The family of this 134-nucleotide sequence from Anisodus acutangulus is "Small nucleolar RNA snoR77". The organism belongs to Anisodus, within Eukaryota. The family's RNA type in Rfam is H/ACA-box small nucleolar RNA. Pairs were carried over by alignment from the consensus structure, which was predicted with WAR. A reference for the family is Marker et al. (2002), "Experimental RNomics: identification of 140 candidates for small non-messenger RNAs in the plant Arabidopsis thaliana", Curr Biol. The family has 5 seed sequences and 649 matches in Rfam 15.1.
RNA sequence: AGGCAGCCCCCUUUUAUCUACUUGGUGGGAAGGGAGGUGUUAAUCUGCUCGUAAAUUAAAUUCGCUUAUGCUCUUCAGAUUUGCUGAGAUAUAUUAAUAUCUUUGAAGCUGGUCUAGUAACGCCUAAGCACAAG
Numbered sequence: 001a002g003g004c005a006g007c008c009c010c011c012u013u014u015u016a017u018c019u020a021c022u023u024g025g026u027g028g029g030a031a032g033g034g035a036g037g038u039g040u041u042a043a044u045c046u047g048c049u050c051g052u053a054a055a056u057u058a059a060a061u062u063c064g065c066u067u068a069u070g071c072u073c074u075u076c077a078g079a080u081u082u083g084c085u086g087a088g089a090u091a092u093a094u095u096a097a098u099a100u101c102u103u104u105g106a107a108g109c110u111g112g113u114c115u116a117g118u119a120a121c122g123c124c125u126a127a128g129c130a131c132a133a134g
Stems, first nucleotide, its partner, number of pairs: 002041004007037002009034007065128003070123002072120001077115005083109003088101003